[Rfam]
RNA sequence: UUGUAUGUUGGGAACUCCUGUUCUGCUCCUCCUCCUUUUGGGAAUAAGACUACCUGUGGCAUGAAAAUAAAGGAAUUUUUAGGGCUGCUAGUCACGUAGUGAAGAUUAAGUGAUAGCCUAUUUCUCCUAAAGAA
Numbered sequence: 001u002u003g004u005a006u007g008u009u010g011g012g013a014a015c016u017c018c019u020g021u022u023c024u025g026c027u028c029c030u031c032c033u034c035c036u037u038u039u040g041g042g043a044a045u046a047a048g049a050c051u052a053c054c055u056g057u058g059g060c061a062u063g064a065a066a067a068u069a070a071a072g073g074a075a076u077u078u079u080u081a082g083g084g085c086u087g088c089u090a091g092u093c094a095c096g097u098a099g100u101g102a103a104g105a106u107u108a109a110g111u112g113a114u115a116g117c118c119u120a121u122u123u124c125u126c127c128u129a130a131a132g133a134a
Stems, first nucleotide, its partner, number of pairs: 004063005022048001024046002027043003072127003084114001088110001089108005
Dot-bracket structure: ...(((((.............(.((.(((...........))).)).)..........)))))........(((.........(...((((((..........))))).)...)..........))).......